[Rfam]
RNA sequence: CGUCGAAGUUUUCCUCGGCAGUUAACUGCAACCGUGUUUUUAAUUCCUCGACAGUUAACUGCCGCAGGGGAAU
Numbered sequence: 001c002g003u004c005g006a007a008g009u010u011u012u013c014c015u016c017g018g019c020a021g022u023u024a025a026c027u028g029c030a031a032c033c034g035u036g037u038u039u040u041u042a043a044u045u046c047c048u049c050g051a052c053a054g055u056u057a058a059c060u061g062c063c064g065c066a067g068g069g070g071a072a073u
Stems, first nucleotide, its partner, number of pairs: 012069002015066001016064013
Rfam assigns this 73-nucleotide RNA sequence from Medicago truncatula to the family "MIR2629 microRNA precursor family". The base pairs follow the family's consensus structure, which was predicted with RNAalifold. Its family is annotated with miRNA-mediated post-transcriptional gene silencing and RISC complex in the Gene Ontology.